Rfam assigns this 106-nucleotide RNA sequence from Streptomyces turgidiscabies to the family "ZMP/ZTP riboswitch aptamer (pfl RNA motif)".
The base pairs follow the family's consensus structure, which is taken from published work.
[Rfam]
RNA sequence: AGCGCGGGUCGUGACUGGCGCUGAGGUGGACAACCACCGGGGAGCGGCCUCGCGAAGAACGCGAAGAACGCAGAGUGCGUGCGUGCCGUGCGCCUGGGCGAUGACA
Numbered sequence: 001a002g003c004g005c006g007g008g009u010c011g012u013g014a015c016u017g018g019c020g021c022u023g024a025g026g027u028g029g030a031c032a033a034c035c036a037c038c039g040g041g042g043a044g045c046g047g048c049c050u051c052g053c054g055a056a057g058a059a060c061g062c063g064a065a066g067a068a069c070g071c072a073g074a075g076u077g078c079g080u081g082c083g084u085g086c087c088g089u090g091c092g093c094c095u096g097g098g099c100g101a102u103g104a105c106a
Base pairs, nucleotide, nucleotide: 003054004053005052006051007049008048009047010046011045012044015041016040017094018093019092020091021090026037027036028035029034084100085099086098087097